[Rfam]
RNA sequence: CGGGUUAACCAACCUGAGGGAAAUCGGCAAAAUGGCCCCGUACCUUCGGAAUAAGGGGUGCCUACUCUACUAGGAGUAGGUCGCAGUGACUAGGAAGCUCGGACUGUUUAAUAAAAACAUAGGUGGUCGCUAGCCCGAAAGGGUUAGUACGGCCAUCGAAUCCUGCCCAGUGCGGGCACCUGAAAACCCGGUACAACGGGGAGAAGGGCCCGUAAACGGCGGGGGUAACUAUGACCCUCUUAAGGUAGCGUAGUACCUUGCCGCUUAAUUGGCGGCUUGCAUGAAUGGACAAACAAGAGCUUCACUGUCCCCAGGUUGGAUCCGGCGAACCUGACUCUCUGGUGCAAAGUCCAGAGU
Numbered sequence: 001c002g003g004g005u006u007a008a009c010c011a012a013c014c015u016g017a018g019g020g021a022a023a024u025c026g027g028c029a030a031a032a033u034g035g036c037c038c039c040g041u042a043c044c045u046u047c048g049g050a051a052u053a054a055g056g057g058g059u060g061c062c063u064a065c066u067c068u069a070c071u072a073g074g075a076g077u078a079g080g081u082c083g084c085a086g087u088g089a090c091u092a093g094g095a096a097g098c099u100c101g102g103a104c105u106g107u108u109u110a111a112u113a114a115a116a117a118c119a120u121a122g123g124u125g126g127u128c129g130c131u132a133g134c135c136c137g138a139a140a141g142g143g144u145u146a147g148u149a150c151g152g153c154c155a156u157c158g159a160a161u162c163c164u165g166c167c168c169a170g171u172g173c174g175g176g177c178a179c180c181u182g183a184a185a186a187c188c189c190g191g192u193a194c195a196a197c198g199g200g201g202a203g204a205a206g207g208g209c210c211c212g213u214a215a216a217c218g219g220c221g222g223g224g225g226u227a228a229c230u231a232u233g234a235c236c237c238u239c240u241u242a243a244g245g246u247a248g249c250g251u252a253g254u255a256c257c258u259u260g261c262c263g264c265u266u267a268a269u270u271g272g273c274g275g276c277u278u279g280c281a282u283g284a285a286u287g288g289a290c291a292a293a294c295a296a297g298a299g300c301u302u303c304a305c306u307g308u309c310c311c312c313a314g315g316u317u318g319g320a321u322c323c324g325g326c327g328a329a330c331c332u333g334a335c336u337c338u339c340u341g342g343u344g345c346a347a348a349g350u351c352c353a354g355a356g357u
Stems, first nucleotide, its partner, number of pairs: 001324004009319008018310003035059005044049001060081009082086001094303007102294001105119003122157008130147001133144004161289003165220003170217002172213005179208003187200004221239006240244001260276006338355005
Rfam assigns this 357-nucleotide part of an RNA from Candidatus Methanohalarchaeum thermophilum to the family "Archaeal large subunit ribosomal RNA". The base pairs follow the family's consensus structure, which is taken from published work. It scores 2865 bits against the family's covariance model. Its family is annotated with structural constituent of ribosome and ribosome in the Gene Ontology. On this family, see Yusupov et al., Science 2001: "Crystal structure of the ribosome at 5.5 A resolution". The source organism's lineage runs through Archaea, Methanobacteriati, Methanobacteriota, Methanonatronarchaeia and Candidatus Methanohalarchaeum.